[Rfam]
RNA: Pestivirus 3' UTR SLI
RNA sequence: AGUGCUUAGGGUUGAAAGUGACAACCAUUUUUUGGUUCGAACAAAAAUCCUAAAGCACCC
Numbered sequence: 001a002g003u004g005c006u007u008a009g010g011g012u013u014g015a016a017a018g019u020g021a022c023a024a025c026c027a028u029u030u031u032u033u034g035g036u037u038c039g040a041a042c043a044a045a046a047a048u049c050c051u052a053a054a055g056c057a058c059c060c
Stems, first nucleotide, its partner, number of pairs: 002058006008051005019040001023037005